[Rfam]
RNA sequence: GGGUGUCUAGUUGAACUUAGGCAGGUGUUUGUUGUAGUCGGGCCGCUACAA
Numbered sequence: 001g002g003g004u005g006u007c008u009a010g011u012u013g014a015a016c017u018u019a020g021g022c023a024g025g026u027g028u029u030u031g032u033u034g035u036a037g038u039c040g041g042g043c044c045g046c047u048a049c050a051a
Base pairs, nucleotide, nucleotide: 005022006021007020008019009018010017032051033050034049035048036047037046038045
A member of the RNA family "nhaA-I RNA" from Acinetobacter sp. CIP 64.2, 51 nucleotides long. It is annotated as a riboswitch. From the family's description: Acidobacteria, Alphaproteobacteria, Betaproteobacteria and Gammaproteobacteria, Verrucomicrobia, cand. division NC10. Pairs were carried over by alignment from the consensus structure, which is taken from published work. The sequence is in the family's curated seed alignment.